[Rfam]
RNA sequence: GGUUGCGAGUUUGAGGCUGUAGCUGAGGUGCUAAUGGCAUGGCCCUGUCAGAUUCCAACAAAUCUGCAAAUUCUGCU
Numbered sequence: 001g002g003u004u005g006c007g008a009g010u011u012u013g014a015g016g017c018u019g020u021a022g023c024u025g026a027g028g029u030g031c032u033a034a035u036g037g038c039a040u041g042g043c044c045c046u047g048u049c050a051g052a053u054u055c056c057a058a059c060a061a062a063u064c065u066g067c068a069a070a071u072u073c074u075g076c077u
Base pairs, nucleotide, nucleotide: 013045015044016043017042018041021077022076023075025073026072027071028040029039030038049066050065051064052063053062054061

Overview
The family of this 77-nucleotide RNA from Alligator sinensis is "Mammalian CPEB3 ribozyme". Rfam links the family to the GO term RNA nuclease activity. Rfam's curators write: The mammalian CPEB3 ribozyme is a self cleaving RNA located in the second intron of the CPEB3 gene which belongs to a family of genes regulating messenger RNA polyadenylation. A reference for the family is Salehi-Ashtiani et al. (2006), "A genomewide search for ribozymes reveals an HDV-like sequence in the human CPEB3 gene", Science. The match comes from Rfam's covariance-model search (38 bits).